[Rfam]
RNA: Small nucleolar RNA Z247
Organism: Striga hermonthica
RNA sequence: AGAAUCAGUGAAGAAGACCAGAUCUCUCAUGUUCUUGCAGGGUUGGGAAAUGAAUACAACCCAGCCAUAGUCUCCAUCCUUCUAGAUCUGAGCCUAGCAAGCUAAGAGAGGUUCACUCUCUUCUCCUUAGCUUUGAAA
Numbered sequence: 001a002g003a004a005u006c007a008g009u010g011a012a013g014a015a016g017a018c019c020a021g022a023u024c025u026c027u028c029a030u031g032u033u034c035u036u037g038c039a040g041g042g043u044u045g046g047g048a049a050a051u052g053a054a055u056a057c058a059a060c061c062c063a064g065c066c067a068u069a070g071u072c073u074c075c076a077u078c079c080u081u082c083u084a085g086a087u088c089u090g091a092g093c094c095u096a097g098c099a100a101g102c103u104a105a106g107a108g109a110g111g112u113u114c115a116c117u118c119u120c121u122u123c124u125c126c127u128u129a130g131c132u133u134u135g136a137a138a
Stems, first nucleotide, its partner, number of pairs: 005136004087107003091103002